Rfam assigns this 70-nucleotide RNA sequence from Microtus ochrogaster to the family "mir-344 microRNA precursor family". The organism belongs to Microtus, within Eukaryota. The family has 18 seed sequences and 339 matches in Rfam 15.1. A search with the family's covariance model found it, with a score of 62 bits. The family's consensus secondary structure was predicted with RNAalifold.

RNA sequence: UUGCCUGUCAGGCUCUGGCUAUAGUCCAGGUCUCAGUUGGACCUGGAUCUAACCAAAGCCUGACUGUACA
Numbered sequence: 001u002u003g004c005c006u007g008u009c010a011g012g013c014u015c016u017g018g019c020u021a022u023a024g025u026c027c028a029g030g031u032c033u034c035a036g037u038u039g040g041a042c043c044u045g046g047a048u049c050u051a052a053c054c055a056a057a058g059c060c061u062g063a064c065u066g067u068a069c070a
Stems, first nucleotide, its partner, number of pairs: 007064003011060004016055003020051002023048001026040004